RNA sequence: GCGUGGGUCGGCCCGCUGUACUGGAUCCAGUGGGCUGGGGGACACCGCCGUCACAUAUCCCCGCGGGCGGCGGACCGGUCCGGGAGGCGAACUCCGCCUCCCGGAUCGUG
Numbered sequence: 001g002c003g004u005g006g007g008u009c010g011g012c013c014c015g016c017u018g019u020a021c022u023g024g025a026u027c028c029a030g031u032g033g034g035c036u037g038g039g040g041g042a043c044a045c046c047g048c049c050g051u052c053a054c055a056u057a058u059c060c061c062c063g064c065g066g067g068c069g070g071c072g073g074a075c076c077g078g079u080c081c082g083g084g085a086g087g088c089g090a091a092c093u094c095c096g097c098c099u100c101c102c103g104g105a106u107c108g109u110g
Base pairs, nucleotide, nucleotide: 001109002108006076007075008074009037010036011035012034013033014032015031016030017029018028038043045073046072047071048070049069050068051067052066054065056063077107078106079105080104081103082102083101084100085099086098087097088096089095
Streptomyces RNA 4115: a 110-nucleotide sequence from Streptomyces flaveus. Rfam classes the family as a small RNA. The match comes from Rfam's covariance-model search (110 bits). The literature on the family includes a 2011 paper in RNA Biol by Vockenhuber et al., "Deep sequencing-based identification of small non-coding RNAs in Streptomyces coelicolor". Taxonomically the source falls in Streptomyces (Bacteria, Bacillati, Actinomycetota, Kitasatosporales). About the family: Identified by deep sequencing of transcriptome at the end of exponential growth phase. Sequencing size consistent with notrthern blot size.